[Rfam]
RNA sequence: GUAAGCAACCCCCGGAUUAAAUCCGGGGGCUUCAGCCAAAACCUCGGUUGAGUUGAAGCCCAGCUUACCCGGCUCAGCACAUGGCGUGCUACGUUAUCGGUAAGUGUUCAAGUUCUCACUCCGGGAUGCGUGAUGCCAGUUCCGGACUCUGAAACUGAAGGAUUAACCAGACUUAAGGGUUUACAGUCAGUGUUCUUCGGAUAGUUACCGACCGAUAACUUUGCCAAGGCUCACAUUAC
Numbered sequence: 001g002u003a004a005g006c007a008a009c010c011c012c013c014g015g016a017u018u019a020a021a022u023c024c025g026g027g028g029g030c031u032u033c034a035g036c037c038a039a040a041a042c043c044u045c046g047g048u049u050g051a052g053u054u055g056a057a058g059c060c061c062a063g064c065u066u067a068c069c070c071g072g073c074u075c076a077g078c079a080c081a082u083g084g085c086g087u088g089c090u091a092c093g094u095u096a097u098c099g100g101u102a103a104g105u106g107u108u109c110a111a112g113u114u115c116u117c118a119c120u121c122c123g124g125g126a127u128g129c130g131u132g133a134u135g136c137c138a139g140u141u142c143c144g145g146a147c148u149c150u151g152a153a154a155c156u157g158a159a160g161g162a163u164u165a166a167c168c169a170g171a172c173u174u175a176a177g178g179g180u181u182u183a184c185a186g187u188c189a190g191u192g193u194u195c196u197u198c199g200g201a202u203a204g205u206u207a208c209c210g211a212c213c214g215a216u217a218a219c220u221u222u223g224c225c226a227a228g229g230c231u232c233a234c235a236u237u238a239c
Stems, first nucleotide, its partner, number of pairs: 001068006010029002012026002015023002030058007071225003076090005093219009116152002120146008135230003155200009168190001170188004174183002
Dot-bracket structure: ((((((...((((.((.....)).)).))(((((((...............)))))))....))))))..(((..(((((.....)))))..(((((((((..............((..((((((((.......[[[.))))))))....))..(((((((((....(.((((((......)).)))).).)))))))))..........)))))))))...)))..]]].........

HNH endonuclease-associated RNA and ORF (HEARO) RNA: a 239-nucleotide sequence from Iningainema tapete. Rfam classes the family as a non-coding RNA gene. Lineage of the source: Bacteria > Bacillati > Cyanophyceae > Iningainema > Iningainema tapete. The literature on the family includes a 2009 paper in Nature by Weinberg et al., "Exceptional structured noncoding RNAs revealed by bacterial metagenome analysis".